[Rfam]
The record is an 80-nucleotide sequence from Sciurus vulgaris, which matches "Small nucleolar RNA U2-19" in Rfam.
Gene Ontology terms of the family: RNA processing and nucleolus.
On this family, see Tycowski et al., Curr Biol 2004: "Guide RNAs with 5' Caps and Novel Box C/D snoRNA-like Domains for Modification of snRNAs in Metazoa".
The base pairs follow the family's consensus structure, which is taken from published work.
Rfam 15.1 lists 1,147 matches to the family in 531 species.
RNA sequence: GAUCAAUGAUGAAAAUAGCCAAAUCUGAGCAUCAGAAGACUUCAUAGUCAAUCUGAUAUAUGAUCUGUAAUGUUCUGAGA
Numbered sequence: 001g002a003u004c005a006a007u008g009a010u011g012a013a014a015a016u017a018g019c020c021a022a023a024u025c026u027g028a029g030c031a032u033c034a035g036a037a038g039a040c041u042u043c044a045u046a047g048u049c050a051a052u053c054u055g056a057u058a059u060a061u062g063a064u065c066u067g068u069a070a071u072g073u074u075c076u077g078a079g080a
Base pairs, nucleotide, nucleotide: 029059031057032056033055038049039048040047